[Rfam]
RNA sequence: UUAGGUUAUGAGCGUUCCCGAUAGGAAUCAUUACUACUAGAUCCUUGUAACCGAAAUUAUUUUAGGGGGAAUUUUAAGUUG
Number, nucleotide and partner (000 for none) at each position: 001u000002u000003a000004g000005g000006u000007u000008a000009u000010g000011a000012g000013c000014g000015u071016u070017c069018c068019c067020g000021a000022u000023a045024g044025g043026a000027a042028u041029c040030a000031u000032u000033a000034c000035u000036a000037c000038u000039a000040g029041a028042u027043c025044c024045u023046u000047g000048u000049a000050a000051c066052c065053g000054a000055a000056a000057u000058u000059a000060u000061u000062u000063u000064a000065g052066g051067g019068g018069g017070a016071a015072u000073u000074u000075u000076a000077a000078g000079u000080u000081g000

A member of the RNA family "SAM-III riboswitch aptamer (SMK box)" from Pediococcus argentinicus, 81 nucleotides long. Rfam links the family to the GO terms regulation of translational initiation and methionine adenosyltransferase activity. On this family, see Fuchs et al., Proc Natl Acad Sci U S A 2007: "S-adenosylmethionine directly inhibits binding of 30S ribosomal subunits to the SMK box translational riboswitch RNA". The family's consensus secondary structure is taken from published work.